[Rfam]
RNA: small nucleolar RNA snoR117
RNA sequence: GGCCUAUGAUGCAUGAUCAAUUUGUCCGUACCAUCUGAGACAUUUUCUUUAUAAUGUCUCUGACGAAUACUCAUUUUUUUAAUCUGAGGCCU
Numbered sequence: 001g002g003c004c005u006a007u008g009a010u011g012c013a014u015g016a017u018c019a020a021u022u023u024g025u026c027c028g029u030a031c032c033a034u035c036u037g038a039g040a041c042a043u044u045u046u047c048u049u050u051a052u053a054a055u056g057u058c059u060c061u062g063a064c065g066a067a068u069a070c071u072c073a074u075u076u077u078u079u080u081a082a083u084c085u086g087a088g089g090c091c092u
Stems, first nucleotide, its partner, number of pairs: 001091004